Shown here is a 93-nucleotide RNA, a member of the family "DUF1874 RNA".
RNA sequence: UAAGCCCCGCCUUGUGGGCUGGCCAUCCAGGGUAAGUCUGCCCAUAGGGCAGCGCCAGCCCACACCCGAAAGGGUGUAAGGCGGGGAGGAGGA
Numbered sequence: 001u002a003a004g005c006c007c008c009g010c011c012u013u014g015u016g017g018g019c020u021g022g023c024c025a026u027c028c029a030g031g032g033u034a035a036g037u038c039u040g041c042c043c044a045u046a047g048g049g050c051a052g053c054g055c056c057a058g059c060c061c062a063c064a065c066c067c068g069a070a071a072g073g074g075u076g077u078a079a080g081g082c083g084g085g086g087a088g089g090a091g092g093a
Stems, first nucleotide, its partner, number of pairs: 005086009015062009036053001038052005063076005